Record summary:
A member of the RNA family "c-di-GMP-I riboswitch aptamer" from Paenibacillus cremeus, 90 nucleotides long. GEMM was predicted in a large-scale screen for bacterial structured RNA regulatory elements.
RNA sequence: ACUCGAUAAAGGCAAACCAAGCGAAAGCCUGGGACGCAAAACUACAGGGGCUAAAGCGCUACUGCAACGCCAGGCCAGCCAGUUACCGAA
Numbered sequence: 001a002c003u004c005g006a007u008a009a010a011g012g013c014a015a016a017c018c019a020a021g022c023g024a025a026a027g028c029c030u031g032g033g034a035c036g037c038a039a040a041a042c043u044a045c046a047g048g049g050g051c052u053a054a055a056g057c058g059c060u061a062c063u064g065c066a067a068c069g070c071c072a073g074g075c076c077a078g079c080c081a082g083u084u085a086c087c088g089a090a
Stems, first nucleotide, its partner, number of pairs: 012037002017032003021028002040084004047080002049076003056070003